[Rfam]
RNA sequence: GAGACACCCUUGUGGGGCAGGACUUGCUUCAGUGGGGUUUUGGUGCUUACUGAGUCUGUCCCUGAGUGUGUCUCU
Dot-bracket structure: (((((((.((((.((((((.(((.....((((((((((....)).))))))))))))))))))))).))))))).

The record is a 75-nucleotide RNA sequence from Myotis myotis, which matches "mir-9229 microRNA precursor family" in Rfam. NCBI's taxonomy places the organism under Eukaryota, Bilateria, Chordata, Chiroptera, Myotis. Pairs were carried over by alignment from the consensus structure, which was predicted with RNAalifold. Gene Ontology terms of the family: miRNA-mediated post-transcriptional gene silencing and RISC complex. A search with the family's covariance model found it, with a score of 85 bits.